[Rfam]
RNA sequence: AGCAGUAGAUCUUUGACUAAGUACCGACACAUCCUGUAUCGAACGUCGAAGUCAACACAUCCUGUGUA
Numbered sequence: 001a002g003c004a005g006u007a008g009a010u011c012u013u014u015g016a017c018u019a020a021g022u023a024c025c026g027a028c029a030c031a032u033c034c035u036g037u038a039u040c041g042a043a044c045g046u047c048g049a050a051g052u053c054a055a056c057a058c059a060u061c062c063u064g065u066g067u068a
Stems, first nucleotide, its partner, number of pairs: 011051007026040002029037002055067004

Bacillaceae-1 RNA: a 68-nucleotide RNA sequence from Oceanobacillus profundus. The match comes from Rfam's covariance-model search (55 bits). The base pairs follow the family's consensus structure, which is taken from published work.